[Rfam]
RNA sequence: UCAUUUAAAUAGCAAACCCGGGGAAAUCCGGCGGCGCAAAGCUAUAGGGGCCGAAAAGCCAGCCAGUUAUACUU
Numbered sequence: 001u002c003a004u005u006u007a008a009a010u011a012g013c014a015a016a017c018c019c020g021g022g023g024a025a026a027u028c029c030g031g032c033g034g035c036g037c038a039a040a041g042c043u044a045u046a047g048g049g050g051c052c053g054a055a056a057a058g059c060c061a062g063c064c065a066g067u068u069a070u071a072c073u074u
Stems, first nucleotide, its partner, number of pairs: 012037002018031005040068004047064002049060003
The family of this 74-nucleotide RNA sequence from Oribacterium sp. C9 is "c-di-GMP-I riboswitch aptamer". The source organism's lineage runs through Bacteria, Bacillati, Clostridia, Lachnospiraceae and Oribacterium.